[Rfam]
Description:
The record is a 211-nucleotide sequence from Streptomyces sp., which matches "Streptomyces RNA 1601" in Rfam.

Nucleotides: 211
Stems, first nucleotide, its partner, number of pairs: 004092006012027002029082004034060002037057004041052002062077006094130004101123008140204006146196003153192003156188001158186003162182005
Number, partner (000 for none) and nucleotide at each position: 001000a002000a003000c004092g005091a006090c007089c008088g009087g010000c011000u012027g013026g014000a015000g016000a017000c018000g019000u020000a021000u022000g023000u024000g025000u026013c027012c028000a029082g030081c031080c032079c033000a034060c035059a036000a037057g038056u039055g040054g041052a042051g043000g044000c045000u046000c047000c048000g049000a050000u051042c052041u053000c054040c055039c056038a057037c058000c059035u060034g061000a062077c063076c064075g065074u066073c067072c068000u069000c070000c071000g072067g073066g074065a075064c076063g077062g078000c079032g080031g081030g082029u083000c084000a085000c086000c087009c088008c089007g090006g091005u092004c093000a094130g095129g096128c097127g098000c099000c100000c101123c102122c103121a104120u105119c106118g107117u108116u109000c110000c111000g112000u113000a114000c115000g116108g117107a118106c119105g120104a121103u122102g123101g124000a125000g126000u127097c128096g129095c130094c131000c132000g133000a134000a135000a136000u137000c138000g139000c140204g141203c142202c143201c144200c145199g146196c147195g148194g149000u150000c151000a152000u153192c154191g155190c156188g157000a158186c159185g160184g161000u162182g163181c164180u165179c166178c167000g168000g169000c170000a171000g172000u173000g174000u175000u176000u177000u178166g179165g180164a181163g182162c183000c184160c185159c186158g187000c188156c189000u190155g191154u192153g193000a194148u195147c196146g197000u198000c199145c200144g201143g202142g203141g204140c205000a206000u207000u208000u209000u210000u211000u
The literature on the family includes a 2011 paper in RNA Biol by Vockenhuber et al., "Deep sequencing-based identification of small non-coding RNAs in Streptomyces coelicolor".
About the family: Identified by deep sequencing of transcriptome at the end of exponential growth phase. Appears longer on northern blot than sequencing transcript.
The organism belongs to Streptomyces, within Bacteria.
It scores 188 bits against the family's covariance model.